[Rfam]
RNA sequence: AACGUGCACCGGGGUCAGUGAAAGUCUGAACCGGCGGUUAUAGUCCGCGACCCGUUACUUGUUAACGGUUGAGCUGGUGGAACUCCAGCACCGACGGUUAAAGUCCGGAUGGGAGGCGCACGAU
Numbered sequence: 001a002a003c004g005u006g007c008a009c010c011g012g013g014g015u016c017a018g019u020g021a022a023a024g025u026c027u028g029a030a031c032c033g034g035c036g037g038u039u040a041u042a043g044u045c046c047g048c049g050a051c052c053c054g055u056u057a058c059u060u061g062u063u064a065a066c067g068g069u070u071g072a073g074c075u076g077g078u079g080g081a082a083c084u085c086c087a088g089c090a091c092c093g094a095c096g097g098u099u100a101a102a103g104u105c106c107g108g109a110u111g112g113g114a115g116g117c118g119c120a121c122g123a124u
Stems, first nucleotide, its partner, number of pairs: 003122005009116002016028003030104002032093002034048004043091002052068002073089005095107003
RNA: FMN riboswitch aptamer (RFN element)